Rfam assigns this 147-nucleotide RNA from Luminiphilus syltensis to the family "TPP riboswitch aptamer (THI element)". The organism belongs to Luminiphilus syltensis, within Bacteria.
[Rfam]
RNA sequence: GGAGUUCCUGCGGGGUGGCUGCGGCCUGAGACCCCCCUUGAUUGGCGAGAAUGCGACGGGAACAUCGUACGCACUGCUCUGUCACCAGGGGAACCCGUUGAACCUGAACCGGAUAAUACCGGCGGAGGGACAGGGCGCUGCAAUUCU
Dot-bracket structure: .....(((((((((.((((....)))......(((....................................................))))..)))).....(((...((((......))))...)))..)))))............